[Rfam]
RNA sequence: GGCGAUAAACGCACCCGUAAUAAACGGAUCGGACCCGGGGGCGGUACCCGGCGGCUCCACCAGACUUUCCCCGCGUUGGGGGCGGAGGGGGCCGAAACAGGAUCGACGAACGUCUAAAGGGGCCAGCUUUUGCUCGGUGAGGUACCACCGUUAUCGGUCCGCAAGUGCAGUUGCCAACGACAACCGUGCUCCGAUGGCUCUGGCUGCGUAA
Numbered sequence: 001g002g003c004g005a006u007a008a009a010c011g012c013a014c015c016c017g018u019a020a021u022a023a024a025c026g027g028a029u030c031g032g033a034c035c036c037g038g039g040g041g042c043g044g045u046a047c048c049c050g051g052c053g054g055c056u057c058c059a060c061c062a063g064a065c066u067u068u069c070c071c072c073g074c075g076u077u078g079g080g081g082g083c084g085g086a087g088g089g090g091g092c093c094g095a096a097a098c099a100g101g102a103u104c105g106a107c108g109a110a111c112g113u114c115u116a117a118a119g120g121g122g123c124c125a126g127c128u129u130u131u132g133c134u135c136g137g138u139g140a141g142g143u144a145c146c147a148c149c150g151u152u153a154u155c156g157g158u159c160c161g162c163a164a165g166u167g168c169a170g171u172u173g174c175c176a177a178c179g180a181c182a183a184c185c186g187u188g189c190u191c192c193g194a195u196g197g198c199u200c201u202g203g204c205u206g207c208g209u210a211a
Stems, first nucleotide, its partner, number of pairs: 001134005014122003025112002029109003035051005052094007135150004

permuted transfer-messenger RNA: a 211-nucleotide RNA sequence from Cereibacter changlensis. NCBI's taxonomy places the organism under Bacteria, Pseudomonadati, Pseudomonadota, Paracoccaceae, Cereibacter changlensis. It is annotated as a non-coding RNA gene.